[Rfam]
Nucleotides: 076
Stems, first nucleotide, its partner, number of pairs: 014043004020076006027039003048065002051062004
Number, partner (000 for none) and nucleotide at each position: 001000a002000u003000c004000a005000c006000a007000a008000g009000u010000u011000a012000g013000a014043g015042g016041c017040c018000a019000c020076a021075g022074c023073a024072g025071a026000a027039g028038u029037g030000c031000u032000u033000a034000c035000c036000a037029u038028g039027c040017g041016g042015c043014c044000u045000u046000g047000u048065c049064a050000u051062a052061u053060u054059c055000c056000a057000a058000u059054g060053a061052a062051u063000c064049u065048g066000c067000a068000a069000a070000c071025u072024c073023u074022g075021c076020u